[Rfam]
RNA sequence: UAGAAUAACGGCGAUGAAGUUCGCCUUAUACCCCAUUUCUGGGGUUAAUGACUUCUAUUAUUAU
Dot-bracket structure: .........[[[[..((((((]]]]....((((((....))))))....)))))).........
The record is a 64-nucleotide RNA from Caproiciproducens galactitolivorans, which matches "Fluoride riboswitch aptamer (crcB RNA motif)" in Rfam.
The source organism's lineage runs through Bacteria, Bacillati, Bacillota, Acutalibacteraceae and Caproiciproducens.
Gene Ontology terms of the family: positive regulation of gene expression and response to fluoride.